[Rfam]
Nucleotides: 067
Stems, first nucleotide, its partner, number of pairs: 004064001006062012019049006026042003
Number, partner (000 for none) and nucleotide at each position: 001000g002000c003000a004064u005000g006062c007061a008060c009059u010058g011057a012056g013055u014054g015053g016052c017051c018000a019049g020048a021047u022046g023045a024044u025000g026042a027041u028040g029000a030000u031000c032000u033000c034000c035000g036000a037000a038000c039000g040028c041027a042026u043000a044024a045023u046022c047021a048020u049019c050000u051017g052016g053015c054014c055013a056012c057011u058010c059009a060008g061007u062006g063000a064004a065000u066000a067000u
mir-9256 microRNA precursor family: a 67-nucleotide RNA sequence from Pipistrellus kuhlii. The family has 8 seed sequences and 31,772 matches in Rfam 15.1. Its family is annotated with RISC complex and miRNA-mediated post-transcriptional gene silencing in the Gene Ontology.